[Rfam]
RNA sequence: AGGACCGAACGCGGGAGCCCGGGGCACCGGGCUGAGAGGGCGGCUGACGCAGCCACCGACCGCUUGAACCUGACCGGGUAAUGCCGGCGUAGGGAGUUGUUCAAUGGUUUCG
Numbered sequence: 001a002g003g004a005c006c007g008a009a010c011g012c013g014g015g016a017g018c019c020c021g022g023g024g025c026a027c028c029g030g031g032c033u034g035a036g037a038g039g040g041c042g043g044c045u046g047a048c049g050c051a052g053c054c055a056c057c058g059a060c061c062g063c064u065u066g067a068a069c070c071u072g073a074c075c076g077g078g079u080a081a082u083g084c085c086g087g088c089g090u091a092g093g094g095a096g097u098u099g100u101u102c103a104a105u106g107g108u109u110u111c112g
Stems, first nucleotide, its partner, number of pairs: 008098003011063004017032005039057002042054005069093004074087004
The family of this 112-nucleotide RNA from Streptosporangium becharense is "TPP riboswitch aptamer (THI element)". For this family Rfam cites "Comparative genomics of thiamin biosynthesis in procaryotes. New genes and regulatory mechanisms" (Rodionov et al., J Biol Chem, 2002). The source organism's lineage runs through Bacteria, Actinomycetota, Actinomycetes, Streptosporangiales and Streptosporangium.